[Rfam]
The family of this 197-nucleotide sequence from Methylobrevis albus is "Alphaproteobacterial sRNA ar9". It is annotated as a small RNA.
Nucleotides: 197
Stems, first nucleotide, its partner, number of pairs: 052160004062074004076152001078150003083100003086096003102142006171190008
Number, partner (000 for none) and nucleotide at each position: 001000a002000c003000a004000c005000a006000a007000u008000a009000a010000u011000c012000g013000u014000c015000u016000c017000c018000a019000c020000u021000a022000u023000u024000u025000c026000g027000u028000c029000u030000c031000a032000c033000g034000a035000a036000c037000g038000g039000u040000c041000u042000u043000c044000u045000c046000a047000a048000a049000a050000a051000u052160c053159g054158c055157g056000g057000u058000c059000u060000g061000a062074g063073u064072c065071u066000u067000g068000g069000g070000a071065g072064g073063a074062u075000a076152g077000c078150c079149c080148c081000c082000u083100g084099g085098c086096g087095c088094g089000g090000a091000a092000a093000u094088c095087g096086c097000a098085g099084c100083c101000g102142a103141a104140g105139u106138g107137g108000c109000c110000g111000g112000g113000c114000g115000g116000u117000c118000g119000g120000g121000a122000g123000g124000a125000a126000a127000c128000g129000c130000c131000g132000c133000u134000c135000g136000a137107u138106u139105a140104c141103u142102u143000g144000a145000a146000u147000g148080g149079g150078g151000a152076c153000g154000a155000c156000a157055c158054g159053c160052g161000g162000a163000a164000c165000u166000c167000g168000a169000a170000a171190a172189g173188c174187a175186a176185g177184g178183c179000u180000u181000c182000g183178g184177c185176c186175u187174u188173g189172c190171u191000u192000u193000u194000u195000u196000a197000u